[Rfam]
RNA sequence: CGUACAAACUGGCCGGCUAAAAGCGGCAACGUCCUGUUGCAACGCAUGUCUGACCACGUCCUGUGGC
Dot-bracket structure: ..........(((..((........(((((.....)))))...))..)))...((((.....)))).